[Rfam]
RNA sequence: AGCUUUGCGCAAUGGCAGUAUCAUAGCCAACGAGGUCUACCCGAGCACAAUUAUUGCUAAUUGAAAACUUUUCCCAAUACUCCGCUGUGACAACUUGCAGAAUUUAGUUGGCAUUGGCAAUUUUUGACAGUCUCUAUGGAGA
Numbered sequence: 001a002g003c004u005u006u007g008c009g010c011a012a013u014g015g016c017a018g019u020a021u022c023a024u025a026g027c028c029a030a031c032g033a034g035g036u037c038u039a040c041c042c043g044a045g046c047a048c049a050a051u052u053a054u055u056g057c058u059a060a061u062u063g064a065a066a067a068c069u070u071u072u073c074c075c076a077a078u079a080c081u082c083c084g085c086u087g088u089g090a091c092a093a094c095u096u097g098c099a100g101a102a103u104u105u106a107g108u109u110g111g112c113a114u115u116g117g118c119a120a121u122u123u124u125u126g127a128c129a130g131u132c133u134c135u136a137u138g139g140a141g142a
Base pairs, nucleotide, nucleotide: 020051021050024047026046027045034042035041084118085117086116087114088113089112091110092109093108094107095106131142132141133140134139
A member of the RNA family "U4 spliceosomal RNA" from Cebus imitator, 142 nucleotides long.
Rfam 15.1 lists 32,178 matches to the family in 2,547 species.
Its family is annotated with U4 snRNP and spliceosomal tri-snRNP complex assembly in the Gene Ontology.
About the family: U4 small nuclear RNA (U4 snRNA) is a component of the major U2-dependent spliceosome.
It scores 95 bits against the family's covariance model.
Clan: U4 clan.
Pairs were carried over by alignment from the consensus structure, which is taken from published work.